The record is a 296-nucleotide RNA from Eumeta japonica, which matches "Metazoan signal recognition particle RNA" in Rfam. The family's consensus secondary structure is taken from published work. Lineage of the source: Eukaryota > Opisthokonta > Insecta > Heteroneura > Eumeta. Rfam 15.1 lists 383,523 matches to the family in 1,221 species. From the family's description: The signal recognition particle (SRP) is a universally conserved ribonucleoprotein. It is involved in the co-translational targeting of proteins to membranes. The eukaryotic SRP consists of a 300-nucleotide 7S RNA and six proteins: SRPs 72, 68, 54, 19, 14, and 9.
RNA sequence: ACUGGGAGCGUGGCGUCUCCUGUAAUCCGGCUACUCGGAGGUCGGAGCCGGAGGAGGGUGUGAGGCCGGGGGCUCUGGCGGCGCGUGGCGCGCGUCGACCGGACGUCCGCACUAAGCCCGGUGUCGAUAUGGGCCGCGCGGGGGAGCCCGUGCGGGCCAGGUUAGCUAAGGAGGGGCGCACCGGGCCAGGGGGGAAACCCAGCAGCCAAAAGUCCCCGCAUCGGGCAGUAGUGGGAUAGCGGCCGGGAGCGGGCGCGCGUCGUCAGCCCGACCGAUAACACCCGACCCGUCUCUUU
Numbered sequence: 001a002c003u004g005g006g007a008g009c010g011u012g013g014c015g016u017c018u019c020c021u022g023u024a025a026u027c028c029g030g031c032u033a034c035u036c037g038g039a040g041g042u043c044g045g046a047g048c049c050g051g052a053g054g055a056g057g058g059u060g061u062g063a064g065g066c067c068g069g070g071g072g073c074u075c076u077g078g079c080g081g082c083g084c085g086u087g088g089c090g091c092g093c094g095u096c097g098a099c100c101g102g103a104c105g106u107c108c109g110c111a112c113u114a115a116g117c118c119c120g121g122u123g124u125c126g127a128u129a130u131g132g133g134c135c136g137c138g139c140g141g142g143g144g145a146g147c148c149c150g151u152g153c154g155g156g157c158c159a160g161g162u163u164a165g166c167u168a169a170g171g172a173g174g175g176g177c178g179c180a181c182c183g184g185g186c187c188a189g190g191g192g193g194g195a196a197a198c199c200c201a202g203c204a205g206c207c208a209a210a211a212g213u214c215c216c217c218g219c220a221u222c223g224g225g226c227a228g229u230a231g232u233g234g235g236a237u238a239g240c241g242g243c244c245g246g247g248a249g250c251g252g253g254c255g256c257g258c259g260u261c262g263u264c265a266g267c268c269c270g271a272c273c274g275a276u277a278a279c280a281c282c283c284g285a286c287c288c289g290u291c292u293c294u295u296u
Stems, first nucleotide, its partner, number of pairs: 001042003004021005026039003044294004049289003056283006064273002067270004075266013089253001091251003095247001099246004104241003107235002110233005116226009126163003130159003134155009166170001173216005184207003191200003